[Rfam]
RNA: mir-9242 microRNA precursor family
RNA sequence: GGCCUCCCUCUUUGUGGCGAUCGAUCACGGAGCCCCCUGAUCGAUCGCCCCAAAGAGGGAGGCA
Numbered sequence: 001g002g003c004c005u006c007c008c009u010c011u012u013u014g015u016g017g018c019g020a021u022c023g024a025u026c027a028c029g030g031a032g033c034c035c036c037c038u039g040a041u042c043g044a045u046c047g048c049c050c051c052a053a054a055g056a057g058g059g060a061g062g063c064a
Stems, first nucleotide, its partner, number of pairs: 002063013016049012029036002